[Rfam]
RNA sequence: GGUUUCCAUUGGUGCAAAUCCAAUCACCUGAAUUUAAGAUGAAAAACAAUUAUCCAUUGGUAGCAAAUGCUUAUCCAUUAAGCGGAAAA
Numbered sequence: 001g002g003u004u005u006c007c008a009u010u011g012g013u014g015c016a017a018a019u020c021c022a023a024u025c026a027c028c029u030g031a032a033u034u035u036a037a038g039a040u041g042a043a044a045a046a047c048a049a050u051u052a053u054c055c056a057u058u059g060g061u062a063g064c065a066a067a068u069g070c071u072u073a074u075c076c077a078u079u080a081a082g083c084g085g086a087a088a089a
Stems, first nucleotide, its partner, number of pairs: 009023004053086003056078002059075005
Record summary
Shown here is an 89-nucleotide sequence, a member of the family "Plastid-rps12 3UTR RNA". It is annotated as a cis-regulatory element. From the family's description: Plastid rpl20 is a non-coding RNA (ncRNA) recognised in plastids. It was found in the three prime untranslated region (3UTR) of rps12 gene, its 3UTR location sugest a role in transcript maduration. Rfam 15.1 lists 1,710 matches to the family in 1,426 species.